RNA sequence: GGGGGUUAACCCGGGCCAGGGAACUCGGCAAAUUGGCCCCGUAACUUCGGGAGAAGGGGUGCCUGCGGUCCUGGGGCCCACCCCUGGGACCGCAGGUUGCAGUGCCUAGGGGGGCCUGACUGUUUAAUAAAAACAUAGGUCCCCGCAAGCCCGAAAGGGUGUGUACGGGGGCCGAAUCCUGGCCACUGGCGGUCCGUGAAACCGGGGUUCAACCCGGCGAAGCGCCGCUGAAGGCCGGGAGUAACUCUGACUCUCUUAAGGUAGCCAAAUGCCUUGCCGGGUAAGUUCCGGCGCGCAUGAAUGGAUCAACGAGGUCCCCACUGUCCCGGCCCGGGGCCCCGUGAACCCCCUGAGCCGGUGCACAGUCCGGCAA
Numbered sequence: 001g002g003g004g005g006u007u008a009a010c011c012c013g014g015g016c017c018a019g020g021g022a023a024c025u026c027g028g029c030a031a032a033u034u035g036g037c038c039c040c041g042u043a044a045c046u047u048c049g050g051g052a053g054a055a056g057g058g059g060u061g062c063c064u065g066c067g068g069u070c071c072u073g074g075g076g077c078c079c080a081c082c083c084c085u086g087g088g089a090c091c092g093c094a095g096g097u098u099g100c101a102g103u104g105c106c107u108a109g110g111g112g113g114g115c116c117u118g119a120c121u122g123u124u125u126a127a128u129a130a131a132a133a134c135a136u137a138g139g140u141c142c143c144c145g146c147a148a149g150c151c152c153g154a155a156a157g158g159g160u161g162u163g164u165a166c167g168g169g170g171g172c173c174g175a176a177u178c179c180u181g182g183c184c185a186c187u188g189g190c191g192g193u194c195c196g197u198g199a200a201a202c203c204g205g206g207g208u209u210c211a212a213c214c215c216g217g218c219g220a221a222g223c224g225c226c227g228c229u230g231a232a233g234g235c236c237g238g239g240a241g242u243a244a245c246u247c248u249g250a251c252u253c254u255c256u257u258a259a260g261g262u263a264g265c266c267a268a269a270u271g272c273c274u275u276g277c278c279g280g281g282u283a284a285g286u287u288c289c290g291g292c293g294c295g296c297a298u299g300a301a302u303g304g305a306u307c308a309a310c311g312a313g314g315u316c317c318c319c320a321c322u323g324u325c326c327c328g329g330c331c332c333g334g335g336g337c338c339c340c341g342u343g344a345a346c347c348c349c350c351u352g353a354g355c356c357g358g359u360g361c362a363c364a365g366u367c368c369g370g371c372a373a
Base pairs, nucleotide, nucleotide: 001340002339003338004337010335011334012333013332014331015330016329017328019326020325021324036060037059038058039057040056045050061097062096063095064094065093066092067091068090069089070088071087072086073085074084075083076082098102110319111318112317113316114315115314116313117311118310121135122134123133138173139172140171141170142169143168144167145166146163149160150159151158152157176306177305178304179303181236182235183234186233187232188229189228190227191226192225195224196223197222202217203216204215205214206213237255238254239253240252241251242250256260276292277291278290279289280288281287354371355370356369357368358367
RNA: Archaeal large subunit ribosomal RNA, nucleotides 1824 to 2196